Shown here is a 140-nucleotide RNA, a member of the family "Group II catalytic intron D1-D4-4". Rfam's curators write: Group II introns are found in rRNA, tRNA and mRNA of organelles in fungi, plants and protists, and also in mRNA in bacteria. The base pairs follow the family's consensus structure. A reference for the family is Lehmann and Schmidt (2003), "Group II introns: structure and catalytic versatility of large natural ribozymes", Crit Rev Biochem Mol Biol. The family has 90 seed sequences and 840 matches in Rfam 15.1. Gene Ontology term of the family: Group II intron splicing.
[Rfam]
RNA sequence: CAGCAGGAGACAAACCUGCCCGGUAACUGUUGCUCCAACCGGUAGCAAUCGGAGCCGUUGUUGAGGAAACAAUACGACGGAAGCACUUCGAUGAAAAAGGAUCGCAUUGGCGAUUCAGCAAGCUUGCAGGCCCAAUUCGU
Numbered sequence: 001c002a003g004c005a006g007g008a009g010a011c012a013a014a015c016c017u018g019c020c021c022g023g024u025a026a027c028u029g030u031u032g033c034u035c036c037a038a039c040c041g042g043u044a045g046c047a048a049u050c051g052g053a054g055c056c057g058u059u060g061u062u063g064a065g066g067a068a069a070c071a072a073u074a075c076g077a078c079g080g081a082a083g084c085a086c087u088u089c090g091a092u093g094a095a096a097a098a099g100g101a102u103c104g105c106a107u108u109g110g111c112g113a114u115u116c117a118g119c120a121a122g123c124u125u126g127c128a129g130g131c132c133c134a135a136u137u138c139g140u
Stems, first nucleotide, its partner, number of pairs: 020042005050090005055080006065070001099116006118140002